A member of the RNA family "Bacterial RNase P class A" from Tolypothrix bouteillei, 448 nucleotides long. Ribonuclease P (RNase P) is a ubiquitous endoribonuclease, found in archaea, bacteria and eukarya as well as chloroplasts and mitochondria. Rfam links the family to the GO terms ribonuclease P activity, dimeric ribonuclease P complex and tRNA processing. It scores 250 bits against the family's covariance model. The literature on the family includes a 1998 paper in Annu Rev Biochem by Frank and Pace, "Ribonuclease P: unity and diversity in a tRNA processing ribozyme". By type it is a ribozyme.

[Rfam]
RNA sequence: AGAGUAGGCGCAGGCGGUUGCAGGUUAGCUUGAAGAAAGCUAGCUUGAGGAAAGUCCGGGCUCCCGAAAGACCAGACUUGCUGGGUAACGCCCAGUGCGAGCGAUCGUGAGGAUAGUGCCACAGAAAAAUACCGCCUUCUGAAUGAUGAAUGAUGAAUGAUGAAAAGUUUUCAGAAUUCAGAAUUCAGAAUUCUGAAUUCAGUUGGUAAGGGUGCAAAGGUGCGGUAAGAGCGCACCAGCACGACUGAGAGGUCGUGGCUCGGUAAACCCCGGUUGGGAGCAAGGUAAGGGAACUACGGUUGGUCUUUUACCAGUUCCGUAAAAAAGAGCCGCUAGAGGCGUCUGGUAACAGGCGUCCCAGAUAGAUAACUGCCCUUAAAAUGUAAGAAUGUUUGGCAAAAUAUUUUUACAUUAGAGAACAGAACCCGGCUUAUGUCCGACUCUCUCC
Numbered sequence: 001a002g003a004g005u006a007g008g009c010g011c012a013g014g015c016g017g018u019u020g021c022a023g024g025u026u027a028g029c030u031u032g033a034a035g036a037a038a039g040c041u042a043g044c045u046u047g048a049g050g051a052a053a054g055u056c057c058g059g060g061c062u063c064c065c066g067a068a069a070g071a072c073c074a075g076a077c078u079u080g081c082u083g084g085g086u087a088a089c090g091c092c093c094a095g096u097g098c099g100a101g102c103g104a105u106c107g108u109g110a111g112g113a114u115a116g117u118g119c120c121a122c123a124g125a126a127a128a129a130u131a132c133c134g135c136c137u138u139c140u141g142a143a144u145g146a147u148g149a150a151u152g153a154u155g156a157a158u159g160a161u162g163a164a165a166a167g168u169u170u171u172c173a174g175a176a177u178u179c180a181g182a183a184u185u186c187a188g189a190a191u192u193c194u195g196a197a198u199u200c201a202g203u204u205g206g207u208a209a210g211g212g213u214g215c216a217a218a219g220g221u222g223c224g225g226u227a228a229g230a231g232c233g234c235a236c237c238a239g240c241a242c243g244a245c246u247g248a249g250a251g252g253u254c255g256u257g258g259c260u261c262g263g264u265a266a267a268c269c270c271c272g273g274u275u276g277g278g279a280g281c282a283a284g285g286u287a288a289g290g291g292a293a294c295u296a297c298g299g300u301u302g303g304u305c306u307u308u309u310a311c312c313a314g315u316u317c318c319g320u321a322a323a324a325a326a327g328a329g330c331c332g333c334u335a336g337a338g339g340c341g342u343c344u345g346g347u348a349a350c351a352g353g354c355g356u357c358c359c360a361g362a363u364a365g366a367u368a369a370c371u372g373c374c375c376u377u378a379a380a381a382u383g384u385a386a387g388a389a390u391g392u393u394u395g396g397c398a399a400a401a402u403a404u405u406u407u408u409a410c411a412u413u414a415g416a417g418a419a420c421a422g423a424a425c426c427c428g429g430c431u432u433a434u435g436u437c438c439g440a441c442u443c444u445c446u447c448c
Stems, first nucleotide, its partner, number of pairs: 001444005007438002010436003013374007021047009052432003056429005061280004070307002075275003079272002081095005096110001097108004111270002116268002118264003132211002134207003139202006219237006239259001240257007284331003290318006298312003302308001338357008